[Rfam]
RNA sequence: AAAAUAUUUGGACCGUCGUUCUAUCGAGCAAUUUCACCCGCUCGGUGGAAGAUCUUCCCUUUGUUGU
Number, nucleotide and partner (000 for none) at each position: 001a000002a000003a000004a064005u063006a062007u000008u000009u000010g058011g057012a056013c000014c000015g053016u052017c051018g000019u000020u049021c048022u047023a046024u045025c044026g043027a042028g041029c040030a000031a000032u000033u000034u000035c000036a000037c000038c000039c000040g029041c028042u027043c026044g025045g024046u023047g022048g021049a020050a000051g017052a016053u015054c000055u000056u012057c011058c010059c000060u000061u000062u006063g005064u004065u000066g000067u000